[Rfam]
RNA: Glycine riboswitch aptamer
Organism: Mycobacterium decipiens
RNA sequence: UGACGCGAUGCGGGAGAACCUCGAAGUCGAGGCGCCGUAGGAGCAAUCUCCUCCCCGGGAAUCUCUCAGGCCCAAGCACCGCACCGCCGAG
Numbered sequence: 001u002g003a004c005g006c007g008a009u010g011c012g013g014g015a016g017a018a019c020c021u022c023g024a025a026g027u028c029g030a031g032g033c034g035c036c037g038u039a040g041g042a043g044c045a046a047u048c049u050c051c052u053c054c055c056c057g058g059g060a061a062u063c064u065c066u067c068a069g070g071c072c073c074a075a076g077c078a079c080c081g082c083a084c085c086g087c088c089g090a091g
Stems, first nucleotide, its partner, number of pairs: 006086002009083005019032004034071003037067001041065003047058002